[Rfam]
Shown here is a 65-nucleotide RNA sequence from Equus asinus, a member of the family "Small nucleolar RNA SNORD77". The source organism's lineage runs through Eukaryota, Deuterostomia, Teleostomi, Dipnotetrapodomorpha and Equus. Rfam links the family to the GO terms nucleolus and RNA processing. A search with the family's covariance model found it, with a score of 55 bits. Rfam describes the family as follows. U77 belongs to the C/D family of snoRNAs. It is predicted to guide 2'O-ribose methylation of large 28S rRNA subunit at position A1521. The C/D snoRNAs U44, U47, U74, U75, U76, U78, U79, U80 and U81 share the same host gene as U77 (non-coding). Pairs were carried over by alignment from the consensus structure, which was predicted with RNAalifold.

RNA sequence: UUACUGUGAUGGUUAUAUAGCUCAGAUUGAAUCAUGAAGAGAUAUACCAUUUAUCUAAUGUAAAA
Numbered sequence: 001u002u003a004c005u006g007u008g009a010u011g012g013u014u015a016u017a018u019a020g021c022u023c024a025g026a027u028u029g030a031a032u033c034a035u036g037a038a039g040a041g042a043u044a045u046a047c048c049a050u051u052u053a054u055c056u057a058a059u060g061u062a063a064a065a
Stems, first nucleotide, its partner, number of pairs: 001063004006035005013025001040052004